[Rfam]
RNA sequence: CUUGAUGGAGCCCAGCCAGAGCGGCCGGUUCCCGGGGCGGUCCUGCCCGUAGGUGGCGAGCAGCGCCUGGGCCUC
Number, nucleotide and partner (000 for none) at each position: 001c000002u000003u000004g000005a000006u000007g000008g000009a000010g000011c000012c000013c000014a000015g025016c024017c023018a000019g000020a000021g000022c000023g017024g016025c015026c000027g000028g000029u000030u000031c071032c070033c069034g000035g000036g000037g000038c065039g064040g000041u000042c000043c060044u059045g000046c000047c056048c055049g054050u000051a000052g000053g000054u049055g048056g047057c000058g000059a044060g043061c000062a000063g000064c039065g038066c000067c000068u000069g033070g032071g031072c000073c000074u000075c000

A member of the RNA family "ASpks TB sRNA" from Streptomyces sp. MP39-85, 75 nucleotides long. The family's RNA type in Rfam is antisense RNA.